[Rfam]
Shown here is a 107-nucleotide RNA sequence from Neogobius melanostomus, a member of the family "Small nucleolar RNA SNORD46". Rfam 15.1 lists 723 matches to the family in 611 species. Rfam links the family to the GO terms nucleolus and RNA processing. The source organism's lineage runs through Eukaryota, Chordata, Gobioidei, Neogobiini and Neogobius. Rfam describes the family as follows. U40 is a C/D box small nucleolar RNA, also known as snoZ153 in plants. The family's RNA type in Rfam is C/D-box small nucleolar RNA. The literature on the family includes a 2003 paper in Nucleic Acids Res by Chen et al., "The high diversity of snoRNAs in plants: identification and comparative study of 120 snoRNA genes from Oryza sativa".
RNA sequence: UGCGUGAGUGAUGAAAACGAUGCCUUAGGUUGGUCUUUUUGAGCCGUUUUGGUUCAAAGCUCUAGACUUUACCAAUGUUAGGAUUGUCAUAGUUACACUGACACGCA
Numbered sequence: 001u002g003c004g005u006g007a008g009u010g011a012u013g014a015a016a017a018c019g020a021u022g023c024c025u026u027a028g029g030u031u032g033g034u035c036u037u038u039u040u041g042a043g044c045c046g047u048u049u050u051g052g053u054u055c056a057a058a059g060c061u062c063u064a065g066a067c068u069u070u071a072c073c074a075a076u077g078u079u080a081g082g083a084u085u086g087u088c089a090u091a092g093u094u095a096c097a098c099u100g101a102c103a104c105g106c107a
Stems, first nucleotide, its partner, number of pairs: 001107006